[Rfam]
RNA sequence: UUUGUCCUUCGGGGUCGGGUGAAAGUCCCAGCCGGCGGUGAUGAAGCUUAGCUUACGAGCCCGCGAGCCUUUUUAGGCAGGAUUUGGUGUGAAUCCAAAGCCGACAGUAUAGUCUGGAUGGGAGAAGGACAUG
Dot-bracket structure: ..((((((((......(((.......))).[[((((((....................[[))))....(.......).....(((((.......)))))]])).(((....]]))).......))))))))..
RNA: FMN riboswitch aptamer (RFN element)
Organism: Peribacillus deserti